The record is a 130-nucleotide RNA from Spodoptera littoralis, which matches "Small nucleolar RNA psi18S-841/snoR66" in Rfam. From the family's description: psi18S-841 is a member of the H/ACA class of snoRNA. This family is responsible for guiding the modification of uridine 841 in Drosophila 18S rRNA to pseudouridine. Its family is annotated with RNA processing and nucleolus in the Gene Ontology. It is annotated as an H/ACA-box small nucleolar RNA.
RNA sequence: UGCAAGGGCACUCUGUGUUAUACAUUCAAUAUGAUAAUUACAAUUUGUUACCUUGCUAUAAUAAAUCUACCAAAUCCUAUUCUAUGUGAGCUUACACAUGGCUACAUGGUCAUAGUGGUAGAUACAUUUU
Numbered sequence: 001u002g003c004a005a006g007g008g009c010a011c012u013c014u015g016u017g018u019u020a021u022a023c024a025u026u027c028a029a030u031a032u033g034a035u036a037a038u039u040a041c042a043a044u045u046u047g048u049u050a051c052c053u054u055g056c057u058a059u060a061a062u063a064a065a066u067c068u069a070c071c072a073a074a075u076c077c078u079a080u081u082c083u084a085u086g087u088g089a090g091c092u093u094a095c096a097c098a099u100g101g102c103u104a105c106a107u108g109g110u111c112a113u114a115g116u117g118g119u120a121g122a123u124a125c126a127u128u129u130u
Stems, first nucleotide, its partner, number of pairs: 002056006010048002014042003017038005063128002065123003069119003075114001082109001084107004088102001
Dot-bracket structure: .((((((..((..((((((((............))))).)))....))..))))))......(((((.(((...(......(.(((((.............).)))).)....)..))).)))...))..